[Rfam]
RNA sequence: GCAUGGUAAUGGAUUUAUGGUAGGCUCUUCUUUGUGGGCCUCCCAUAGUGUACUCAUGCCAGAGUAAAUUGCUGCCUCGAACCAUUGCUUAGCUCCUUACCUGUGAGCUGUUAGCACUGAAGGGGGUUGUACAGUG
Numbered sequence: 001g002c003a004u005g006g007u008a009a010u011g012g013a014u015u016u017a018u019g020g021u022a023g024g025c026u027c028u029u030c031u032u033u034g035u036g037g038g039c040c041u042c043c044c045a046u047a048g049u050g051u052a053c054u055c056a057u058g059c060c061a062g063a064g065u066a067a068a069u070u071g072c073u074g075c076c077u078c079g080a081a082c083c084a085u086u087g088c089u090u091a092g093c094u095c096c097u098u099a100c101c102u103g104u105g106a107g108c109u110g111u112u113a114g115c116a117c118u119g120a121a122g123g124g125g126g127u128u129g130u131a132c133a134g135u136g
Base pairs, nucleotide, nucleotide: 001059002058003057004056005054006053007052008051015048016047017046018045019044020043022041023040024039025037026036072129074127075126076125077124083119084118088114089113090110091109092108093107094106095105
Dot-bracket structure: ((((((((......((((((.(((((.........)).))).))))))..)))).))))............(.((((.....((...((((((((.........))))))..))...))....)))).).......
Rfam assigns this 136-nucleotide RNA from Molossus molossus to the family "Small nucleolar RNA SNORA42/SNORA80 family". The members of this family belong to the H/ACA class of snoRNAs that guide the sites of modification of uridines to pseudouridines. The match comes from Rfam's covariance-model search (132 bits). Taxonomically the source falls in Molossus (Eukaryota, Craniata, Boreoeutheria, Chiroptera).